[Rfam]
RNA sequence: UCAGUACAAACAGCCAUAGCAGAAGCAAUCAUAAUGUGGGCCCUGUCAGAUGCCAAUGAAUCCGUGAAUUCUGCU
Numbered sequence: 001u002c003a004g005u006a007c008a009a010a011c012a013g014c015c016a017u018a019g020c021a022g023a024a025g026c027a028a029u030c031a032u033a034a035u036g037u038g039g040g041c042c043c044u045g046u047c048a049g050a051u052g053c054c055a056a057u058g059a060a061u062c063c064g065u066g067a068a069u070u071c072u073g074c075u
Stems, first nucleotide, its partner, number of pairs: 013043001014039002018075007025037003047064001049062003053058001
RNA: Mammalian CPEB3 ribozyme
Organism: Crocodylus porosus